[Rfam]
RNA sequence: UAAGGUUAGGUUUGUGGUUGAAAGUCGAUGCCAGUCGCAGGCGAAACGAUCCACGUAAGUUAGAUAAAAUAUCUAGCGAGCAUGGUGCGGUUUAGAAGUAAGUCCUGCCGUAAGAUAUUACGAGAGAGUGAGUAGUGAGAAGUUAAAUCUGGGUAGCAAAAGCUCCAGCAGGCGAGUGUGGGGUCAAAGACCAGGUCAACUAACCCUG
Numbered sequence: 001u002a003a004g005g006u007u008a009g010g011u012u013u014g015u016g017g018u019u020g021a022a023a024g025u026c027g028a029u030g031c032c033a034g035u036c037g038c039a040g041g042c043g044a045a046a047c048g049a050u051c052c053a054c055g056u057a058a059g060u061u062a063g064a065u066a067a068a069a070u071a072u073c074u075a076g077c078g079a080g081c082a083u084g085g086u087g088c089g090g091u092u093u094a095g096a097a098g099u100a101a102g103u104c105c106u107g108c109c110g111u112a113a114g115a116u117a118u119u120a121c122g123a124g125a126g127a128g129u130g131a132g133u134a135g136u137g138a139g140a141a142g143u144u145a146a147a148u149c150u151g152g153g154u155a156g157c158a159a160a161a162g163c164u165c166c167a168g169c170a171g172g173c174g175a176g177u178g179u180g181g182g183g184u185c186a187a188a189g190a191c192c193a194g195g196u197c198a199a200c201u202a203a204c205c206c207u208g
Stems, first nucleotide, its partner, number of pairs: 001208002004205006012199003015193005028179003031041001033092007050085002060075001063072001083186001104172005109122005126165004135157002141150002

The record is a 208-nucleotide RNA sequence from Clostridium sp. cel8, which matches "raiA RNA" in Rfam. The family's RNA type in Rfam is riboswitch. Lineage of the source: Bacteria > Bacillati > Clostridia > Eubacteriales > Clostridium.